[Rfam]
RNA sequence: UGCAAGGAUUUUAUGAUUAAGAAGCAAUUCUUUCUUGUACAGAUUGUACAUUAAUUU
Numbered sequence: 001u002g003c004a005a006g007g008a009u010u011u012u013a014u015g016a017u018u019a020a021g022a023a024g025c026a027a028u029u030c031u032u033u034c035u036u037g038u039a040c041a042g043a044u045u046g047u048a049c050a051u052u053a054a055u056u057u
Stems, first nucleotide, its partner, number of pairs: 018037007
The family of this 57-nucleotide sequence from Oryza meyeriana is "Plastid-rps18 3UTR RNA".
Pairs were carried over by alignment from the consensus structure, which was predicted with LocARNA.
From the family's description: Plastid rps18 is a non-coding RNA (ncRNA) present in plastids. It was identified as a short stem-loop motif in the 3 prime untranslate region (3UTR) of rps18 gene.
It scores 67 bits against the family's covariance model.